[Rfam]
RNA sequence: AACAACAUGUAUCCAGUAAAAAAAGGCACAGUGAUUUUUUCACUGGUGACUGGUGAUUUUUUCAUCACCAGUCU
Number, nucleotide and partner (000 for none) at each position: 001a000002a000003c000004a000005a000006c000007a000008u000009g000010u000011a000012u000013c000014c045015a044016g043017u042018a000019a000020a000021a000022a000023a000024a000025g000026g000027c000028a000029c000030a000031g000032u000033g000034a000035u000036u000037u000038u000039u000040u000041c000042a017043c016044u015045g014046g000047u000048g073049a072050c071051u070052g069053g068054u067055g066056a065057u064058u000059u000060u000061u000062u000063c000064a057065u056066c055067a054068c053069c052070a051071g050072u049073c048074u000